[Rfam]
RNA sequence: CGAGCUUGAGGCUAGGGUUCCGGCAUCCGUUCGAUGCGCUGGUCCGAGAGCCUCAGUCAGGGCGGGAGACAUCCCCCUGAGCACGGCGGGAUAAAAGCCCGGGAGAU
Number, nucleotide and partner (000 for none) at each position: 001c000002g000003a000004g000005c000006u000007u055008g054009a053010g052011g051012c050013u000014a000015g045016g044017g000018u000019u000020c042021c041022g039023g037024c036025a035026u034027c033028c000029g000030u000031u000032c000033g027034a026035u025036g024037c023038g000039c022040u000041g021042g020043u000044c016045c015046g000047a000048g000049a000050g012051c011052c010053u009054c008055a007056g000057u080058c079059a078060g077061g076062g075063c000064g073065g000066g000067a000068g000069a000070c000071a000072u000073c064074c000075c062076c061077c060078u059079g058080a057081g000082c102083a000084c105085g000086g000087c000088g100089g099090g098091a000092u000093a000094a000095a000096a000097g000098c090099c089100c088101g000102g082103g000104a000105g084106a000107u000